[Rfam]
RNA: Small nucleolar RNA SNORD23
RNA sequence: UGCCCGGUGAUGAUAACCAUCCUUGCUCCCCGUGCCCUCUUGGGCUGUGGGCGACACCAUGGCUGCCCUGGGCUGGGCCAGUUGGGCCAUUGCCUGGGGACUGAGGGCA
Number, nucleotide and partner (000 for none) at each position: 001u109002g108003c107004c106005c105006g000007g000008u000009g000010a000011u000012g000013a000014u000015a000016a000017c000018c000019a000020u000021c000022c000023u000024u000025g000026c000027u000028c000029c000030c000031c000032g000033u000034g000035c000036c000037c000038u000039c000040u000041u000042g000043g000044g000045c000046u000047g000048u000049g000050g000051g000052c000053g000054a000055c000056a000057c000058c000059a000060u000061g000062g000063c000064u000065g000066c000067c000068c000069u000070g000071g000072g000073c000074u000075g000076g000077g000078c000079c000080a000081g000082u000083u000084g000085g000086g000087c000088c000089a000090u000091u000092g000093c000094c000095u000096g000097g000098g000099g000100a000101c000102u000103g000104a000105g005106g004107g003108c002109a001